[Rfam]
RNA sequence: CUGGCUGUGAUGAGACGCGCAGGGGUACGGACCUCAGCUGAUCAUGGGAGCUGAGUGUUGGUGCUGGUUACCCGCUCAGUGGGCGUGUGGUCUACUGCCCGGGAGCUGCCAACAUGAUACAGACGCACUGCUGAGCCAC
Numbered sequence: 001c002u003g004g005c006u007g008u009g010a011u012g013a014g015a016c017g018c019g020c021a022g023g024g025g026u027a028c029g030g031a032c033c034u035c036a037g038c039u040g041a042u043c044a045u046g047g048g049a050g051c052u053g054a055g056u057g058u059u060g061g062u063g064c065u066g067g068u069u070a071c072c073c074g075c076u077c078a079g080u081g082g083g084c085g086u087g088u089g090g091u092c093u094a095c096u097g098c099c100c101g102g103g104a105g106c107u108g109c110c111a112a113c114a115u116g117a118u119a120c121a122g123a124c125g126c127a128c129u130g131c132u133g134a135g136c137c138a139c
Stems, first nucleotide, its partner, number of pairs: 002138004
Rfam assigns this 139-nucleotide RNA from Esox lucius to the family "Small nucleolar RNA SNORD94". The family has 21 seed sequences and 802 matches in Rfam 15.1. Pairs were carried over by alignment from the consensus structure, which was predicted with RNAalifold.